[Rfam]
RNA sequence: AUCUUAUCCAGAGAGGUGGAGGGACCGGCCCUAUGAAACCCAGCAACCGGCAAGAUAAUUGCUAUGGUGCUAAUUCCUAUAAUCAUAUGAUUGUAAGAUAAGAA
Numbered sequence: 001a002u003c004u005u006a007u008c009c010a011g012a013g014a015g016g017u018g019g020a021g022g023g024a025c026c027g028g029c030c031c032u033a034u035g036a037a038a039c040c041c042a043g044c045a046a047c048c049g050g051c052a053a054g055a056u057a058a059u060u061g062c063u064a065u066g067g068u069g070c071u072a073a074u075u076c077c078u079a080u081a082a083u084c085a086u087a088u089g090a091u092u093g094u095a096a097g098a099u100a101a102g103a104a
Base pairs, nucleotide, nucleotide: 002103003102004101005100006099007098008097013041015040016039017038021031022030023029027077028076042071043070044069045068047067048066049063050062051061052060075096080093081092082091083090084089
RNA: SAM riboswitch aptamer (S box leader)